[Rfam]
Nucleotides: 069
Base pairs, nucleotide, nucleotide: 010025011024012023013022016060017059018058019057020056021055040050041049042048
Number, partner (000 for none) and nucleotide at each position: 001000c002000u003000c004000c005000c006000g007000g008000c009000c010025g011024g012023a013022g014000a015000u016060g017059g018058c019057a020056u021055u022013c023012u024011c025010c026000g027000u028000u029000g030000u031000c032000c033000u034000u035000g036000a037000a038000c039000c040050g041049c042048c043000g044000u045000c046000g047000u048042g049041g050040c051000u052000g053000a054000u055021g056020a057019u058018g059017c060016c061000u062000g063000c064000c065000c066000u067000c068000g069000c
The record is a 69-nucleotide sequence from Paraburkholderia sp. BL10I2N1, which matches "Fluoride riboswitch aptamer (crcB RNA motif)" in Rfam.
The base pairs follow the family's consensus structure, which is taken from published work.
A search with the family's covariance model found it, with a score of 49 bits.
The source organism's lineage runs through Bacteria, Pseudomonadota, Betaproteobacteria, Burkholderiaceae and Paraburkholderia.